[Rfam]
RNA sequence: AAUAUUCAAAGGCAAAACCGAAGCAAUUCGGCGACGCAAAACUAUAGGAUCUCUACGAGAUAGCCAGUUGCAGAC
Number, nucleotide and partner (000 for none) at each position: 001a000002a000003u000004a000005u000006u000007c000008a000009a000010a000011g000012g037013c036014a000015a000016a000017a000018c031019c030020g029021a028022a027023g000024c000025a000026a000027u022028u021029c020030g019031g018032c000033g000034a000035c000036g013037c012038a000039a000040a069041a068042c067043u066044a000045u000046a000047g065048g064049a061050u060051c059052u058053c057054u000055a000056c000057g053058a052059g051060a050061u049062a000063g000064c048065c047066a043067g042068u041069u040070g000071c000072a000073g000074a000075c000